Overview: Group II catalytic intron D1-D4-4: a 132-nucleotide RNA from Bacillus cereus. The organism belongs to Bacillus cereus, within Bacteria. It is one of the family's seed sequences. The pairing is the family consensus, mapped onto this sequence. About the family: Group II introns are found in rRNA, tRNA and mRNA of organelles in fungi, plants and protists, and also in mRNA in bacteria.
[Rfam]
RNA sequence: UUGCUGGUGAAAGUCCAGCCCCAAGUCGCCUAGUAGCUGACAGGCAACUGGUGGAGAAAUCCUAAGGUUGAAGCCCUGUGACAAAGUAACUUCUAUUUAGAAGUGCGAGCGAAUCAGCAGACCGUAACAUAA
Numbered sequence: 001u002u003g004c005u006g007g008u009g010a011a012a013g014u015c016c017a018g019c020c021c022c023a024a025g026u027c028g029c030c031u032a033g034u035a036g037c038u039g040a041c042a043g044g045c046a047a048c049u050g051g052u053g054g055a056g057a058a059a060u061c062c063u064a065a066g067g068u069u070g071a072a073g074c075c076c077u078g079u080g081a082c083a084a085a086g087u088a089a090c091u092u093c094u095a096u097u098u099a100g101a102a103g104u105g106c107g108a109g110c111g112a113a114u115c116a117g118c119a120g121a122c123c124g125u126a127a128c129a130u131a132a
Base pairs, nucleotide, nucleotide: 020033040079041078042077043076044075045070046069047068048067049066054061055060086106089104090103091102092101093100109125110124111123